Shown here is a 191-nucleotide RNA sequence, a member of the family "IMES-1 RNA motif". Rfam's curators put it in the seed alignment. A reference for the family is Weinberg et al. (2009), "Exceptional structured noncoding RNAs revealed by bacterial metagenome analysis", Nature.
RNA sequence: UGGCAACCGACUAGAUAACAACUGCAGACGGGAUACUAGAGAGAAGCCAAACGGAGAGACCGAAGGGAGAAAGCAUUUACAAGAGUCGGCGAUAAAAAAGAGCUUGUAGAUCCACCAAGGGUUCAAGAGAAAGAACCCAAGGAGCUGAAGAAAAUCUCACUUUAGACCCCUGAGGAAUCGAACUAAGAAAA
Numbered sequence: 001u002g003g004c005a006a007c008c009g010a011c012u013a014g015a016u017a018a019c020a021a022c023u024g025c026a027g028a029c030g031g032g033a034u035a036c037u038a039g040a041g042a043g044a045a046g047c048c049a050a051a052c053g054g055a056g057a058g059a060c061c062g063a064a065g066g067g068a069g070a071a072a073g074c075a076u077u078u079a080c081a082a083g084a085g086u087c088g089g090c091g092a093u094a095a096a097a098a099a100g101a102g103c104u105u106g107u108a109g110a111u112c113c114a115c116c117a118a119g120g121g122u123u124c125a126a127g128a129g130a131a132a133g134a135a136c137c138c139a140a141g142g143a144g145c146u147g148a149a150g151a152a153a154a155u156c157u158c159a160c161u162u163u164a165g166a167c168c169c170c171u172g173a174g175g176a177a178u179c180g181a182a183c184u185a186a187g188a189a190a191a
Stems, first nucleotide, its partner, number of pairs: 001049004011039004061174001064171003075111009119138005127158004145165006
The family's RNA type in Rfam is non-coding RNA gene.